[Rfam]
RNA: Makes More Granules Regulator RNA (mmgR)
RNA sequence: GUUGUUUGCCUUUCUUGGACGUUUCCUCCCUAAACUCGGCGGUGCUUUCGGGCACCGCCUUUCUUUUUGCCCGC
Numbered sequence: 001g002u003u004g005u006u007u008g009c010c011u012u013u014c015u016u017g018g019a020c021g022u023u024u025c026c027u028c029c030c031u032a033a034a035c036u037c038g039g040c041g042g043u044g045c046u047u048u049c050g051g052g053c054a055c056c057g058c059c060u061u062u063c064u065u066u067u068u069g070c071c072c073g074c
Stems, first nucleotide, its partner, number of pairs: 008020001010018002038059009